[Rfam]
RNA: Acido-Lenti-1 RNA
RNA sequence: CCCAAGGCUCGCGCCCUGGGCUGUUACCCAACGCCCCUUCGGGGCG
Dot-bracket structure: ((((.(((....))).))))............(((((...))))).